[Rfam]
RNA sequence: UUCUUAUCGAGAGUGGUGGAGGGACUGGCCCUGUGAUACCCGGCAGCCGCUGACUUAGUCAGAAUGGUGCUAAAUCCAGCAAAGCGCAAUGCUUUGGCAGAUAAGAU
Numbered sequence: 001u002u003c004u005u006a007u008c009g010a011g012a013g014u015g016g017u018g019g020a021g022g023g024a025c026u027g028g029c030c031c032u033g034u035g036a037u038a039c040c041c042g043g044c045a046g047c048c049g050c051u052g053a054c055u056u057a058g059u060c061a062g063a064a065u066g067g068u069g070c071u072a073a074a075u076c077c078a079g080c081a082a083a084g085c086g087c088a089a090u091g092c093u094u095u096g097g098c099a100g101a102u103a104a105g106a107u
Base pairs, nucleotide, nucleotide: 002106003105004104005103006102007101008100013041015040016039017038021031022030023029025079026078027077028076042071043070044069045068047067048066050062051061052060075099080096081095082094083093084092085091
RNA: SAM riboswitch aptamer (S box leader)